Rfam assigns this 110-nucleotide RNA sequence from Lysobacter sp. A03 to the family "Xanthomonadaceae sRNA asX1".
It scores 83 bits against the family's covariance model.
The literature on the family includes a 2011 paper in Nucleic Acids Res by Schmidtke et al., "Genome-wide transcriptome analysis of the plant pathogen Xanthomonas identifies sRNAs with putative virulence functions".
Rfam classes the family as a small RNA.
[Rfam]
RNA sequence: CACCCAACGGGGCAGGCGCCAGGCGCCGGUCGGGAUUGGAACAGGGCCGACCAUGUGCCCGUCGGGGAAGCACCAGGGUCGAAUGUCGGGGGACAUUCGGCCCUUUUUUU
Numbered sequence: 001c002a003c004c005c006a007a008c009g010g011g012g013c014a015g016g017c018g019c020c021a022g023g024c025g026c027c028g029g030u031c032g033g034g035a036u037u038g039g040a041a042c043a044g045g046g047c048c049g050a051c052c053a054u055g056u057g058c059c060c061g062u063c064g065g066g067g068a069a070g071c072a073c074c075a076g077g078g079u080c081g082a083a084u085g086u087c088g089g090g091g092g093a094c095a096u097u098c099g100g101c102c103c104u105u106u107u108u109u110u
Base pairs, nucleotide, nucleotide: 003066004065005064007062008061009060010059011058012056013055016026017025018024028052029051030050031049032048033047037044075104076103077102078101079100080099081098082097083096084095085094086093087092
Dot-bracket structure: ..(((.(((((((..(((.....))).((((((...(......)..))))))..)).))))).)))........(((((((((((((....)))))))))))))......